[Rfam]
RNA sequence: UUUUGCGGGGAGUUUGUCAAAAGAAACUGGCAUGGUGAAUCCCCCUGUGCGGAGGGGCAAUCAGCGAGUAGGUAUAUGGGAUAAUCGCGGAUUCAGGUGCUGGUACUGAAUUCACCGGGAGGCACACGGCACCAUGCAGUUGACUGAAACCAUGUAUACUCUCAGGCCCCACGCACAUGUGUUGGGGCCUUUUUACAUGC
Numbered sequence: 001u002u003u004u005g006c007g008g009g010g011a012g013u014u015u016g017u018c019a020a021a022a023g024a025a026a027c028u029g030g031c032a033u034g035g036u037g038a039a040u041c042c043c044c045c046u047g048u049g050c051g052g053a054g055g056g057g058c059a060a061u062c063a064g065c066g067a068g069u070a071g072g073u074a075u076a077u078g079g080g081a082u083a084a085u086c087g088c089g090g091a092u093u094c095a096g097g098u099g100c101u102g103g104u105a106c107u108g109a110a111u112u113c114a115c116c117g118g119g120a121g122g123c124a125c126a127c128g129g130c131a132c133c134a135u136g137c138a139g140u141u142g143a144c145u146g147a148a149a150c151c152a153u154g155u156a157u158a159c160u161c162u163c164a165g166g167c168c169c170c171a172c173g174c175a176c177a178u179g180u181g182u183u184g185g186g187g188c189c190u191u192u193u194u195a196c197a198u199g200c
Stems, first nucleotide, its partner, number of pairs: 014146001016144001030137008042057005078088001080086001089113004094108003115129003119125001154200004164190008